[Rfam]
RNA: Actinobacteria sRNA Ms_IGR-5
Organism: Promicromonospora sukumoe
RNA sequence: ACAUGAGAAGGGAGGUGAUCCGAGAAGUGAUUUCACAUCGGACCCAUGAGGUGGUCGCGCGCUAGUCGCGUGACGCGUAAGCGUUUCGCGCCGACGGCGGUCGGGGGGCUCAGCACGGGGCCUUCCUGACCAGCUCAGGCGCAACGGGACACUGGUGGCGAUUUCCUCGCGACCACCGGAGCCCGCGGGUGCCGUGCCCUCGUCCAGCACGGCUGACAUUCGUCGCCCCGCGGGCUUUCCCGC
Numbered sequence: 001a002c003a004u005g006a007g008a009a010g011g012g013a014g015g016u017g018a019u020c021c022g023a024g025a026a027g028u029g030a031u032u033u034c035a036c037a038u039c040g041g042a043c044c045c046a047u048g049a050g051g052u053g054g055u056c057g058c059g060c061g062c063u064a065g066u067c068g069c070g071u072g073a074c075g076c077g078u079a080a081g082c083g084u085u086u087c088g089c090g091c092c093g094a095c096g097g098c099g100g101u102c103g104g105g106g107g108g109c110u111c112a113g114c115a116c117g118g119g120g121c122c123u124u125c126c127u128g129a130c131c132a133g134c135u136c137a138g139g140c141g142c143a144a145c146g147g148g149a150c151a152c153u154g155g156u157g158g159c160g161a162u163u164u165c166c167u168c169g170c171g172a173c174c175a176c177c178g179g180a181g182c183c184c185g186c187g188g189g190u191g192c193c194g195u196g197c198c199c200u201c202g203u204c205c206a207g208c209a210c211g212g213c214u215g216a217c218a219u220u221c222g223u224c225g226c227c228c229c230g231c232g233g234g235c236u237u238u239c240c241c242g243c
Stems, first nucleotide, its partner, number of pairs: 015058005060160005066154001068152001070150001178238012192212006